[Rfam]
RNA sequence: UUGACGGUGAACUCCCAGUCGGGUUCGGUGUCGAGGAGGUAGCGCUCACCGAACUGGUCGCCGUCAGCCAGCGUGCCGAGCCUGUUGGUCUCGCCGUAGGCCCCGUUGCUCGUCUUGUGCACCCGGCCGUGCGCGAUCAGGUAGAGGUGGUCCGCGGAGGUCCCCUCCUGCGCCAGGACCUCCCCGGGCUCGAACUCCCGCUGGACGAAGCGUCCGGCCAGGGCCUCCAGGACCUCGAUGUCGUCGUAGUCGCGCAGUACGGCCAGCUCACCCAGUUCCCGGGGGAUGACGCGCACCUGGGAGCCGGUCUGCACGAAGUCGAUCCGGCCGUCGCCGAUGGUGUAGGUCAGGCGGCGGUUGACCCGGUAGGCGCCGCCGUCGGUCUGAACCCACGGCAGCGUCUUCAGCAGCCAGCGGGAGCUCUUGCCCUGCAUCUGCGGAGCGGACUUGGUGGUGGUGGCCAGGUUCCGAGCGGCCGCGGUCGCCAGGCUCUUCUGCUGGCUGG
Numbered sequence: 001u002u003g004a005c006g007g008u009g010a011a012c013u014c015c016c017a018g019u020c021g022g023g024u025u026c027g028g029u030g031u032c033g034a035g036g037a038g039g040u041a042g043c044g045c046u047c048a049c050c051g052a053a054c055u056g057g058u059c060g061c062c063g064u065c066a067g068c069c070a071g072c073g074u075g076c077c078g079a080g081c082c083u084g085u086u087g088g089u090c091u092c093g094c095c096g097u098a099g100g101c102c103c104c105g106u107u108g109c110u111c112g113u114c115u116u117g118u119g120c121a122c123c124c125g126g127c128c129g130u131g132c133g134c135g136a137u138c139a140g141g142u143a144g145a146g147g148u149g150g151u152c153c154g155c156g157g158a159g160g161u162c163c164c165c166u167c168c169u170g171c172g173c174c175a176g177g178a179c180c181u182c183c184c185c186g187g188g189c190u191c192g193a194a195c196u197c198c199c200g201c202u203g204g205a206c207g208a209a210g211c212g213u214c215c216g217g218c219c220a221g222g223g224c225c226u227c228c229a230g231g232a233c234c235u236c237g238a239u240g241u242c243g244u245c246g247u248a249g250u251c252g253c254g255c256a257g258u259a260c261g262g263c264c265a266g267c268u269c270a271c272c273c274a275g276u277u278c279c280c281g282g283g284g285g286a287u288g289a290c291g292c293g294c295a296c297c298u299g300g301g302a303g304c305c306g307g308u309c310u311g312c313a314c315g316a317a318g319u320c321g322a323u324c325c326g327g328c329c330g331u332c333g334c335c336g337a338u339g340g341u342g343u344a345g346g347u348c349a350g351g352c353g354g355c356g357g358u359u360g361a362c363c364c365g366g367u368a369g370g371c372g373c374c375g376c377c378g379u380c381g382g383u384c385u386g387a388a389c390c391c392a393c394g395g396c397a398g399c400g401u402c403u404u405c406a407g408c409a410g411c412c413a414g415c416g417g418g419a420g421c422u423c424u425u426g427c428c429c430u431g432c433a434u435c436u437g438c439g440g441a442g443c444g445g446a447c448u449u450g451g452u453g454g455u456g457g458u459g460g461c462c463a464g465g466u467u468c469c470g471a472g473c474g475g476c477c478g479c480g481g482u483c484g485c486c487a488g489g490c491u492c493u494u495c496u497g498c499u500g501g502c503u504g505g
Base pairs, nucleotide, nucleotide: 006390007389008388011385014382015381018328019327021325022324025322026321027320028319029318031316032315039312040311041310042309047303049301050300052298054230055229057227060224061223062222064220066110067109068108075103080102082100083099086096087095088094089093117219122217123216126213127212130209131206134203135202140197143196144195150191154189155188159184160183161178162177167172231296234293240290241289242288243287244286245285250282251281252280254278256277257276258275262269329342330341331340332339351379352378353377354376355375356374357373362370363369391431392430394428395427396426397425400422403418404417405416407415437476438475440473443470444469445468446467447465448464449463450462451461452460480503481502482501484499486497487496488495
RNA: Saccharopolyspora sRNA 350